[Rfam]
RNA sequence: GCCGGUCCUCGGUAGUGGCCGCCGGAGAAGCACGAGAGCUUCGACCGGCAGCUUCGAUCGAAGACCGGC
Numbered sequence: 001g002c003c004g005g006u007c008c009u010c011g012g013u014a015g016u017g018g019c020c021g022c023c024g025g026a027g028a029a030g031c032a033c034g035a036g037a038g039c040u041u042c043g044a045c046c047g048g049c050a051g052c053u054u055c056g057a058u059c060g061a062a063g064a065c066c067g068g069c
Stems, first nucleotide, its partner, number of pairs: 001069007009061005017053003021049005027042004